[Rfam]
Rfam assigns this 375-nucleotide RNA sequence from Novosphingobium sp. Rr 2-17 to the family "Alphaproteobacteria transfer-messenger RNA". Bacterial tmRNA, also known as 10Sa RNA or SsrA, is named for its dual tRNA and mRNA-like properties. The match comes from Rfam's covariance-model search (216 bits). The family is grouped with related families in Rfam's "tRNA clan".
RNA sequence: UCACUUCACAUUCACGUCCAAGCGCCUAUAUGGGUCGGUGCCGGUUUCGACCGGAUAUGAUGAUAAACUGCGCCGUGUAAUAGACGCAGCGGACCCGGGGGCGGUACCCGGCGGCUCCACCAUCACCCGUCCCGUUCGGAGCGAUCCGGCGGGGCUACCCUGUUGUCGCAGGGGUGAUGACGGGGCCGAACUAGGAUCGACGUGUGUUCAAAAGCGGUGUUUUCAUCCGGGCUGAGUAACCCGUUCAAGGCUCAAAACUCAUAAGUGCCAACGACAACGAAGCACUUGCUCUCGCAGCGUAAUUCUAGGGGCUAACGCCCUGAAGUUACAAAGUUAGAACACGGUUGGACCCACCGGGUAACAGAAGGGAUUCCA
Number, nucleotide and partner (000 for none) at each position: 001u000002c000003a000004c000005u000006u000007c000008a000009c000010a000011u000012u000013c000014a000015c000016g000017u000018c000019c000020a000021a000022g000023c000024g000025c000026c000027u000028a000029u000030a000031u000032g000033g000034g000035u000036c000037g000038g000039u000040g000041c054042c053043g052044g051045u000046u000047u000048c000049g000050a000051c044052c043053g042054g041055a000056u000057a000058u000059g227060a226061u225062g224063a223064u000065a000066a000067a000068c000069u000070g220071c219072g218073c217074c216075g215076u214077g000078u000079a000080a000081u000082a000083g000084a000085c206086g205087c204088a000089g203090c202091g201092g000093a000094c000095c111096c110097g109098g108099g107100g000101g000102c000103g000104g000105u000106a000107c099108c098109c097110g096111g095112c188113g187114g186115c185116u184117c183118c182119a000120c000121c000122a000123u000124c000125a000126c000127c000128c000129g000130u000131c000132c000133c000134g000135u000136u000137c000138g000139g000140a000141g000142c000143g000144a000145u000146c000147c000148g000149g000150c000151g000152g000153g000154g000155c000156u000157a000158c000159c000160c000161u000162g000163u000164u000165g000166u000167c000168g000169c000170a000171g000172g000173g000174g000175u000176g000177a000178u000179g000180a000181c000182g118183g117184g116185g115186c114187c113188g112189a000190a000191c000192u000193a000194g000195g000196a000197u000198c000199g000200a000201c091202g090203u089204g087205u086206g085207u000208u000209c000210a000211a000212a000213a000214g076215c075216g074217g073218u072219g071220u070221u000222u000223u063224c062225a061226u060227c059228c243229g242230g241231g240232c000233u254234g253235a252236g000237u000238a000239a000240c231241c230242c229243g228244u000245u000246c000247a000248a000249g000250g000251c000252u235253c234254a233255a000256a000257a000258c000259u000260c000261a000262u000263a000264a000265g000266u000267g000268c000269c000270a000271a000272c000273g000274a000275c000276a000277a000278c000279g000280a000281a000282g000283c000284a000285c000286u000287u000288g000289c000290u000291c000292u000293c000294g000295c000296a000297g000298c000299g000300u000301a000302a000303u000304u000305c000306u000307a000308g000309g000310g000311g000312c000313u000314a000315a000316c000317g000318c000319c000320c000321u000322g000323a000324a000325g000326u000327u000328a000329c000330a000331a000332a000333g000334u000335u000336a000337g000338a000339a000340c000341a000342c356343g355344g354345u353346u000347g374348g373349a372350c000351c000352c369353a345354c344355c343356g342357g000358g000359u000360a000361a000362c000363a000364g000365a000366a000367g000368g000369g352370a000371u000372u349373c348374c347375a000